[Rfam]
RNA sequence: CUAUUAAACAGAAUACGUACCUGUAUAACCUCGAGAAUAUGGCUUGAGGGUCUCUACCAGGAACCAUAAAAAUCCUGAUUACAGAAAAUGAUUGAUUCAUU
Numbered sequence: 001c002u003a004u005u006a007a008a009c010a011g012a013a014u015a016c017g018u019a020c021c022u023g024u025a026u027a028a029c030c031u032c033g034a035g036a037a038u039a040u041g042g043c044u045u046g047a048g049g050g051u052c053u054c055u056a057c058c059a060g061g062a063a064c065c066a067u068a069a070a071a072a073u074c075c076u077g078a079u080u081a082c083a084g085a086a087a088a089u090g091a092u093u094g095a096u097u098c099a100u101u
Stems, first nucleotide, its partner, number of pairs: 018087001021084005029049007058077005

Shown here is a 101-nucleotide RNA sequence from Brevibacillus panacihumi, a member of the family "Purine riboswitch aptamer".
Pairs were carried over by alignment from the consensus structure, which is taken from published work.
Gene Ontology term of the family: purine nucleobase biosynthetic process.
Riboswitches are metabolite binding domains within certain messenger RNAs that serve as precision sensors for their corresponding targets.
Lineage of the source: Bacteria > Bacilli > Paenibacillaceae > Brevibacillus > Brevibacillus panacihumi.
A search with the family's covariance model found it, with a score of 70 bits.